RNA sequence: AACGGGCAGGGAUAGCAGCGACAUCCUUUUUUAUUUUUUUAUCCUUCGAGAGCCUCAGGGUACAAAAAAAUAAAAAAGAUACAGCGGAUAGCCCGGUUAAGC
Numbered sequence: 001a002a003c004g005g006g007c008a009g010g011g012a013u014a015g016c017a018g019c020g021a022c023a024u025c026c027u028u029u030u031u032u033a034u035u036u037u038u039u040u041a042u043c044c045u046u047c048g049a050g051a052g053c054c055u056c057a058g059g060g061u062a063c064a065a066a067a068a069a070a071u072a073a074a075a076a077a078g079a080u081a082c083a084g085c086g087g088a089u090a091g092c093c094c095g096g097u098u099a100a101g102c
Stems, first nucleotide, its partner, number of pairs: 009094003013090002018085002023080003029075012
Flavo-1 RNA: a 102-nucleotide RNA sequence from Aquimarina mytili.
It is annotated as a small RNA.
The source organism's lineage runs through Bacteria, Pseudomonadati, Flavobacteriia, Flavobacteriales and Aquimarina.